mir-196 microRNA precursor family: a 75-nucleotide sequence from Oryzias latipes. The base pairs follow the family's consensus structure, which was predicted with PFOLD. For this family Rfam cites "New microRNAs from mouse and human" (Lagos-Quintana et al., RNA, 2003). Rfam 15.1 lists 1,813 matches to the family in 642 species. Lineage of the source: Eukaryota > Teleostomi > Euteleostomi > Osteoglossocephalai > Oryzias.
RNA sequence: AGCGUGGUUUAGGUAGUUUCAUGUUGUUGGGGUUGGCUUCCUGGCUCGGCAACAAGAAACUGCCUUGAUUACGUC
Numbered sequence: 001a002g003c004g005u006g007g008u009u010u011a012g013g014u015a016g017u018u019u020c021a022u023g024u025u026g027u028u029g030g031g032g033u034u035g036g037c038u039u040c041c042u043g044g045c046u047c048g049g050c051a052a053c054a055a056g057a058a059a060c061u062g063c064c065u066u067g068a069u070u071a072c073g074u075c
Stems, first nucleotide, its partner, number of pairs: 003073007011065009022054010